This 65-nucleotide RNA from Gloeocapsa sp. PCC 7428 belongs to the Rfam family "Fluoride riboswitch aptamer (crcB RNA motif)". The literature on the family includes a 2012 paper in Science by Baker et al., "Widespread genetic switches and toxicity resistance proteins for fluoride".

[Rfam]
RNA sequence: UCUGAACUGGGUGAUGGAGCUCACCCUAACCGCCUAUUAUUAAGGCUGAUGGCUCCUACUAUUCU
Numbered sequence: 001u002c003u004g005a006a007c008u009g010g011g012u013g014a015u016g017g018a019g020c021u022c023a024c025c026c027u028a029a030c031c032g033c034c035u036a037u038u039a040u041u042a043a044g045g046c047u048g049a050u051g052g053c054u055c056c057u058a059c060u061a062u063u064c065u
Stems, first nucleotide, its partner, number of pairs: 010025004016056006032046004